Shown here is a 141-nucleotide sequence from Bifidobacterium canis, a member of the family "FMN riboswitch aptamer (RFN element)".
[Rfam]
RNA sequence: UGCAAGUUUCAGGGAAGGUGCAAUUCCUUACUGGCGGUAGCGCAUGGCCUUGCGCCCUAUGCGGAGCCCGCAACCCGCGAAAGCGGUGGAUCUGGUGCGAUUCCAGGGCCAACGGUAUAGUCCGGAUGAAAGAAACGAGAA
Numbered sequence: 001u002g003c004a005a006g007u008u009u010c011a012g013g014g015a016a017g018g019u020g021c022a023a024u025u026c027c028u029u030a031c032u033g034g035c036g037g038u039a040g041c042g043c044a045u046g047g048c049c050u051u052g053c054g055c056c057c058u059a060u061g062c063g064g065a066g067c068c069c070g071c072a073a074c075c076c077g078c079g080a081a082a083g084c085g086g087u088g089g090a091u092c093u094g095g096u097g098c099g100a101u102u103c104c105a106g107g108g109c110c111a112a113c114g115g116u117a118u119a120g121u122c123c124g125g126a127u128g129a130a131a132g133a134a135a136c137g138a139g140a141a
Base pairs, nucleotide, nucleotide: 003139006136007135008134009133010132016028017027018026030121031120032111033110034071035070036069037068066109067108075086076085091107092106093105094104095103113124114123115122
A search with the family's covariance model found it, with a score of 93 bits. NCBI's taxonomy places the organism under Bacteria, Actinomycetota, Bifidobacteriales, Bifidobacteriaceae, Bifidobacterium.